RNA sequence: AUUGGUUGAAUAUCACCCCCAGCUUUGGCCAUGGCCAUGGGUGAGAUUUGGCACCCAGAGCCUCCAGGGGCCUCAGCUUAUUGUGCACUGCCCCAUGUGCAGCUGUGGAACCCAGGCCCUGAUGGGC
Numbered sequence: 001a002u003u004g005g006u007u008g009a010a011u012a013u014c015a016c017c018c019c020c021a022g023c024u025u026u027g028g029c030c031a032u033g034g035c036c037a038u039g040g041g042u043g044a045g046a047u048u049u050g051g052c053a054c055c056c057a058g059a060g061c062c063u064c065c066a067g068g069g070g071c072c073u074c075a076g077c078u079u080a081u082u083g084u085g086c087a088c089u090g091c092c093c094c095a096u097g098u099g100c101a102g103c104u105g106u107g108g109a110a111c112c113c114a115g116g117c118c119c120u121g122a123u124g125g126g127c
Base pairs, nucleotide, nucleotide: 005052006051007050008049009048010047013044014043015042016041022035023034024033067120069118070117071116072115073114078108079107080106081105086099087098088097
Rfam assigns this 127-nucleotide RNA from Macaca mulatta to the family "Small nucleolar RNA ACA64". It is annotated as an H/ACA-box small nucleolar RNA. The source organism's lineage runs through Eukaryota, Eumetazoa, Mammalia, Primates and Macaca.